Description
This 109-nucleotide sequence from Dermacoccus nishinomiyaensis belongs to the Rfam family "SAM (S-adenosyl methionine) riboswitch aptamer". Rfam 15.1 lists 2,360 matches to the family in 1,305 species. SAM-IV is a mRNA element that regulates gene expression via direct sensing of S-adenosylmethionine (SAM or AdoMet). The family's consensus secondary structure is taken from published work. The match comes from Rfam's covariance-model search (92 bits).

[Rfam]
RNA sequence: GGUCAAGAGUUUCAGCGACACAAGCCCCGGCUUGCUGAGCGGCAACCCUCCCUCGCGGCGGGGUGCCCCGGGUGACGACAGGGCCGCCCGUGGGCGGCAAGCGCGAGAG
Numbered sequence: 001g002g003u004c005a006a007g008a009g010u011u012u013c014a015g016c017g018a019c020a021c022a023a024g025c026c027c028c029g030g031c032u033u034g035c036u037g038a039g040c041g042g043c044a045a046c047c048c049u050c051c052c053u054c055g056c057g058g059c060g061g062g063g064u065g066c067c068c069c070g071g072g073u074g075a076c077g078a079c080a081g082g083g084c085c086g087c088c089c090g091u092g093g094g095c096g097g098c099a100a101g102c103g104c105g106a107g108a109g
Base pairs, nucleotide, nucleotide: 002079003078004077009040011039012038013037014036015035016034023032024031041067042066043065046063047062048061050058051057083098084097085096086095087094088093